[Rfam]
RNA sequence: UAUUAAUUUGUUUCAAUCUUUCCUGUUAUGAUUAAAGCAAAUUAGUCCCCCAACUAGACUUCUUGCUGAGAUUGACUCCGAGGGGUCUAGUUUUUUU
Numbered sequence: 001u002a003u004u005a006a007u008u009u010g011u012u013u014c015a016a017u018c019u020u021u022c023c024u025g026u027u028a029u030g031a032u033u034a035a036a037g038c039a040a041a042u043u044a045g046u047c048c049c050c051c052a053a054c055u056a057g058a059c060u061u062c063u064u065g066c067u068g069a070g071a072u073u074g075a076c077u078c079c080g081a082g083g084g085g086u087c088u089a090g091u092u093u094u095u096u097u
Stems, first nucleotide, its partner, number of pairs: 002046012015033004052092014068078003

A member of the RNA family "23S methyl RNA motif" from Lactococcus cremoris, 97 nucleotides long.
Pairs were carried over by alignment from the consensus structure, which is taken from published work.
Its family is annotated with regulation of gene expression in the Gene Ontology.
It is annotated as a cis-regulatory element.
Taxonomically the source falls in Lactococcus cremoris subsp. cremoris (Bacteria, Bacillota, Bacilli, Lactococcus).
A reference for the family is Weinberg et al. (2007), "Identification of 22 candidate structured RNAs in bacteria using the CMfinder comparative genomics pipeline", Nucleic Acids Res.